A member of the RNA family "MIR390 microRNA precursor family" from Musa troglodytarum, 106 nucleotides long. Gene Ontology terms of the family: RISC complex and miRNA-mediated post-transcriptional gene silencing. The family has 16 seed sequences and 649 matches in Rfam 15.1.

[Rfam]
RNA sequence: AAGGAGAAGCCAUGAAGCUCAGGAUGGAUAGCGCUUUGGAUGAGAACUUGAGUUCCUUCCUCAUCUUCUAUGGCGCUAUCCCUCCUGAGCUUUACAGAUUCUUCCA
Numbered sequence: 001a002a003g004g005a006g007a008a009g010c011c012a013u014g015a016a017g018c019u020c021a022g023g024a025u026g027g028a029u030a031g032c033g034c035u036u037u038g039g040a041u042g043a044g045a046a047c048u049u050g051a052g053u054u055c056c057u058u059c060c061u062c063a064u065c066u067u068c069u070a071u072g073g074c075g076c077u078a079u080c081c082c083u084c085c086u087g088a089g090c091u092u093u094a095c096a097g098a099u100u101c102u103u104c105c106a
Stems, first nucleotide, its partner, number of pairs: 010097001016091009026081010